[Rfam]
RNA sequence: GGGGUUGAUUGGGGUACUGGUGUCCCUCACGGUCUUCAAAACCGAUUGUGCGGCGCGUGACGUCGCAGCUGGGUUCGAUUCCCAGGCAGUCCC
Numbered sequence: 001g002g003g004g005u006u007g008a009u010u011g012g013g014g015u016a017c018u019g020g021u022g023u024c025c026c027u028c029a030c031g032g033u034c035u036u037c038a039a040a041a042c043c044g045a046u047u048g049u050g051c052g053g054c055g056c057g058u059g060a061c062g063u064c065g066c067a068g069c070u071g072g073g074u075u076c077g078a079u080u081c082c083c084a085g086g087c088a089g090u091c092c093c
Base pairs, nucleotide, nucleotide: 001093002092003091004090005089006088007087009085012027013026014025016023017022030044031043032042033041049067050066051065052064053063070084071083072082073081
RNA: Selenocysteine transfer RNA